[Rfam]
Nucleotides: 111
Base pairs, nucleotide, nucleotide: 010098011097012096013095014094015093018090019089021087022086023085024084025083026082027081028080029079030078031077032076033075036070037069039067041066042065043064044063045062046061048059
Number, partner (000 for none) and nucleotide at each position: 001000u002000a003000u004000g005000g006000g007000c008000c009000c010098u011097u012096g013095a014094g015093u016000g017000a018090g019089c020000c021087u022086c023085c024084u025083u026082a027081c028080c029079g030078g031077a032076c033075u034000g035000a036070g037069c038000a039067g040000u041066c042065c043064u044063g045062a046061c047000u048059u049000c050000a051000c052000u053000u054000c055000c056000c057000c058000g059048a060000u061046g062045u063044c064043a065042g066041g067039c068000c069037g070036c071000g072000c073000c074000a075033a076032g077031u078030c079029c080028g081027g082026u083025g084024g085023g086022g087021g088000a089019g090018c091000a092000g093015a094014u095013u096012c097011a098010a099000g100000g101000g102000c103000c104000c105000g106000a107000u108000u109000u110000c111000g
Source information:
A member of the RNA family "mraW RNA" from Nesterenkonia natronophila, 111 nucleotides long. Rfam 15.1 lists 851 matches to the family in 821 species. The match comes from Rfam's covariance-model search (58 bits). The family's consensus secondary structure is taken from published work. It is annotated as a cis-regulatory element.